Rfam assigns this 62-nucleotide sequence from Prolemur simus to the family "U7 small nuclear RNA". The base pairs follow the family's consensus structure, which was predicted with PFOLD. The literature on the family includes a 1994 paper in Nucleic Acids Res by Spycher et al., "3' end processing of mouse histone pre-mRNA: evidence for additional base-pairing between U7 snRNA and pre-mRNA". A search with the family's covariance model found it, with a score of 60 bits. The family has 49 seed sequences and 10,439 matches in Rfam 15.1. Lineage of the source: Eukaryota > Craniata > Eutheria > Lemuridae > Prolemur. About the family: Animal histone pre-mRNAs are spliced by a different mechanism than nuclear pre-mRNAs and self-splicing introns.
[Rfam]
RNA sequence: AAGUGUUGCAGCUCUUUUAGAAUCUGUCUAGCAGGUUUUCUGGUCCACACCGGAAGACUCCC
Dot-bracket structure: .................................(((((((((((....)))))))))))...
Numbered sequence: 001a002a003g004u005g006u007u008g009c010a011g012c013u014c015u016u017u018u019a020g021a022a023u024c025u026g027u028c029u030a031g032c033a034g035g036u037u038u039u040c041u042g043g044u045c046c047a048c049a050c051c052g053g054a055a056g057a058c059u060c061c062c
Stems, first nucleotide, its partner, number of pairs: 034059011